Source information:
This 79-nucleotide RNA sequence from Scyliorhinus torazame belongs to the Rfam family "mir-363 microRNA precursor family". Its family is annotated with RISC complex and miRNA-mediated post-transcriptional gene silencing in the Gene Ontology. A search with the family's covariance model found it, with a score of 83 bits. A reference for the family is Linsen et al. (2010), "Small RNA expression and strain specificity in the rat", BMC Genomics. NCBI's taxonomy places the organism under Eukaryota, Vertebrata, Galeoidea, Scyliorhinidae, Scyliorhinus.

RNA sequence: GCUGUUGUCAGGUGGAUCACUCUGCAAUUUUGAGCAAUUUUCUUUUGUAAAAUUGCACGGUAUCCAUCUGUAAUCCGCA
Numbered sequence: 001g002c003u004g005u006u007g008u009c010a011g012g013u014g015g016a017u018c019a020c021u022c023u024g025c026a027a028u029u030u031u032g033a034g035c036a037a038u039u040u041u042c043u044u045u046u047g048u049a050a051a052a053u054u055g056c057a058c059g060g061u062a063u064c065c066a067u068c069u070g071u072a073a074u075c076c077g078c079a
Base pairs, nucleotide, nucleotide: 009070010069011068012067013066014065015064016063017062019061020060023057024056025055026054027053028052029051030050031049